Small nucleolar RNA snoR100: a 108-nucleotide RNA sequence from Rhododendron simsii. The family's consensus secondary structure was predicted with WAR. It is annotated as an H/ACA-box small nucleolar RNA. Gene Ontology terms of the family: RNA processing and nucleolus. It scores 62 bits against the family's covariance model. The family has 9 seed sequences and 1,851 matches in Rfam 15.1.

[Rfam]
RNA sequence: CAAUGUCUAAUUCAUGGUAAUGUGUAUAUAAAUUGAUUUGGGUCUCUAGGUCUGCCCUCUCUGAUGCCAUUUGGUUUUAAUUUGGGAGCAUGGUUCUACAACAAAACG
Dot-bracket structure: ............(((......)))...............(.((......((..(((................)))....))......)).).................